Nucleotides: 135
Stems, first nucleotide, its partner, number of pairs: 003060006018044003023038005071128002074125002086114002089111003093107003
Number, partner (000 for none) and nucleotide at each position: 001000u002000u003060g004059c005058a006057a007056g008055c009000c010000u011000u012000c013000c014000a015000g016000c017000a018044u019043g020042c021000u022000u023038g024037g025036g026035u027034c028000u029000a030000g031000g032000g033000u034027g035026a036025c037024u038023c039000a040000g041000u042020g043019c044018a045000u046000u047000c048000c049000u050000g051000c052000a053000a054000u055008g056007u057006u058005u059004g060003c061000u062000a063000g064000a065000a066000u067000g068000u069000u070000c071128u072127g073000c074125a075124a076000u077000g078000u079000c080000u081000u082000g083000a084000g085000g086114c087113u088000u089111u090110g091109c092000c093107c094106u095105g096000g097000c098000c099000c100000u101000u102000c103000c104000u105095u106094g107093g108000a109091g110090c111089a112000u113087g114086g115000u116000c117000a118000u119000a120000g121000a122000c123000a124075u125074u126000u127072c128071a129000g130000a131000c132000c133000g134000u135000c
The record is a 135-nucleotide RNA sequence from Suricata suricatta, which matches "Small nucleolar RNA SNORA9" in Rfam. Rfam classes the family as an H/ACA-box small nucleolar RNA. Clan: SNORA9 clan. From the family's description: ACA9 is a member of the H/ACA class of snoRNA that guide the sites of modification of uridines to pseudouridines.